[Rfam]
RNA sequence: UGAGUAAGCCGGAUGGUCGCUGCCGCUUUAUGCGGGAGAGGAAAGUCCGAGCUCCACAGGGCAGGGUGCUGGGUAAUACCCAGUGGAGGCGACUCCAAGGAAAGUGCAACAGAGAUAUACCGCCAGAUCCAAUCCUAGUGGAUUGGUGAGAGCAGCUUAUGCUGCCUGGUAAGGGUGGAAAGGUGAGGUAAGAGCUCACCAGCACACUGGCGACAGUGUGGCUCUGUAAACCCCACCUGGAGCAAGACCAAAUAGGGGAGCAUAUGCGCUGGCCCGGCGCGCUCCCGGGUAAGGUCGCUUGAGCCUGCUGGCAACAGUAGGCCUAGAUAGAUGACCAUCUAAAACAGAACUCGGCUUACAGGCUUACUCAACUU
Numbered sequence: 001u002g003a004g005u006a007a008g009c010c011g012g013a014u015g016g017u018c019g020c021u022g023c024c025g026c027u028u029u030a031u032g033c034g035g036g037a038g039a040g041g042a043a044a045g046u047c048c049g050a051g052c053u054c055c056a057c058a059g060g061g062c063a064g065g066g067u068g069c070u071g072g073g074u075a076a077u078a079c080c081c082a083g084u085g086g087a088g089g090c091g092a093c094u095c096c097a098a099g100g101a102a103a104g105u106g107c108a109a110c111a112g113a114g115a116u117a118u119a120c121c122g123c124c125a126g127a128u129c130c131a132a133u134c135c136u137a138g139u140g141g142a143u144u145g146g147u148g149a150g151a152g153c154a155g156c157u158u159a160u161g162c163u164g165c166c167u168g169g170u171a172a173g174g175g176u177g178g179a180a181a182g183g184u185g186a187g188g189u190a191a192g193a194g195c196u197c198a199c200c201a202g203c204a205c206a207c208u209g210g211c212g213a214c215a216g217u218g219u220g221g222c223u224c225u226g227u228a229a230a231c232c233c234c235a236c237c238u239g240g241a242g243c244a245a246g247a248c249c250a251a252a253u254a255g256g257g258g259a260g261c262a263u264a265u266g267c268g269c270u271g272g273c274c275c276g277g278c279g280c281g282c283u284c285c286c287g288g289g290u291a292a293g294g295u296c297g298c299u300u301g302a303g304c305c306u307g308c309u310g311g312c313a314a315c316a317g318u319a320g321g322c323c324u325a326g327a328u329a330g331a332u333g334a335c336c337a338u339c340u341a342a343a344a345c346a347g348a349a350c351u352c353g354g355c356u357u358a359c360a361g362g363c364u365u366a367c368u369c370a371a372c373u374u
Stems, first nucleotide, its partner, number of pairs: 001370010011359001012339007020038002023035004043357003047354005052242004059275004064238005069083005084098001085096004099233002104231002106227003120174002122170005128164001182200006202222001203220007246296004256286006266280005303322008

This 374-nucleotide sequence from Caloramator fervidus belongs to the Rfam family "Bacterial RNase P class A".
Taxonomically the source falls in Caloramator (Bacteria, Bacillati, Bacillota, Clostridia).